[Rfam]
RNA sequence: UACGCGAUGCCGAAUUCGGGUCGCGGCUAAAACCACUCGCUGAACUUCAGGAGAUUGACAUGACU
Numbered sequence: 001u002a003c004g005c006g007a008u009g010c011c012g013a014a015u016u017c018g019g020g021u022c023g024c025g026g027c028u029a030a031a032a033c034c035a036c037u038c039g040c041u042g043a044a045c046u047u048c049a050g051g052a053g054a055u056u057g058a059c060a061u062g063a064c065u
Stems, first nucleotide, its partner, number of pairs: 003025006010019003031055001036053003040050004
Repression of heat shock gene expression (ROSE) element: a 65-nucleotide sequence from Pseudomonas agarici. Gene Ontology terms of the family: regulation of translation and response to temperature stimulus. NCBI's taxonomy places the organism under Bacteria, Pseudomonadati, Pseudomonadales, Pseudomonadaceae, Pseudomonas. Rfam classes the family as an RNA thermoregulator. The literature on the family includes a 2013 paper in PLoS One by Krajewski et al., "Short ROSE-Like RNA Thermometers Control IbpA Synthesis in Pseudomonas Species". The match comes from Rfam's covariance-model search (65 bits).